[Rfam]
Shown here is a 95-nucleotide sequence from Dickeya dadantii, a member of the family "Guanidine-I riboswitch aptamer".
RNA sequence: GAAAUGGGUGACUAGGGUUCCGGCUUCACUGCGCAGGUCCGAGAGUCACCGACCGCCCUCUGGCGGUUACACGGCGGGAUAAAAGCCCGGGAGGA
Numbered sequence: 001g002a003a004a005u006g007g008g009u010g011a012c013u014a015g016g017g018u019u020c021c022g023g024c025u026u027c028a029c030u031g032c033g034c035a036g037g038u039c040c041g042a043g044a045g046u047c048a049c050c051g052a053c054c055g056c057c058c059u060c061u062g063g064c065g066g067u068u069a070c071a072c073g074g075c076g077g078g079a080u081a082a083a084a085g086c087c088c089g090g091g092a093g094g095a
Base pairs, nucleotide, nucleotide: 007050008049009048010047011046012045015040016039020037021036022034023032024031051068052067053066054065055064056063057062070090072093076088077087078086
Rfam's curators write: This family represents a conserved RNA structure found upstream of the ykkC and yxkD genes in Bacillus subtilis and related genes in other bacteria. The function of this family is unclear although it has been suggested that it may function to switch on efflux pumps and detoxification systems in response to harmful environmental molecules. The match comes from Rfam's covariance-model search (80 bits).